A member of the RNA family "Histone 3' UTR stem-loop" from Acanthaster planci, 46 nucleotides long. The mRNAs of metazoan histone genes lack a poly-A tail. 3' end processing occurs at a site between a highly conserved stem-loop (modelled by this family) and a purine rich region around 20 nts downstream (the histone downstream element, or HDE). The stem-loop is bound by a 31 kDa stem-loop binding protein (SLBP - also termed the histone hairpin binding protein, or HBP). Together with U7 snRNA binding of the HDE, SLBP binding nucleate s the formation of the processing complex. The match comes from Rfam's covariance-model search (36 bits). It is annotated as a cis-regulatory element. Taxonomically the source falls in Acanthaster (Eukaryota, Deuterostomia, Echinodermata, Asterozoa).
RNA sequence: CUCCCGGUUCUUUUCAGAACCACACAUACUCUUAAGAGAGAUAUAU
Number, nucleotide and partner (000 for none) at each position: 001c000002u000003c000004c000005c000006g021007g020008u019009u018010c017011u016012u000013u000014u000015c000016a011017g010018a009019a008020c007021c006022a000023c000024a000025c000026a000027u000028a000029c000030u000031c000032u000033u000034a000035a000036g000037a000038g000039a000040g000041a000042u000043a000044u000045a000046u000
The literature on the family includes a 1999 paper in Gene by Dominski and Marzluff, "Formation of the 3' end of histone mRNA". The family's consensus secondary structure is taken from published work.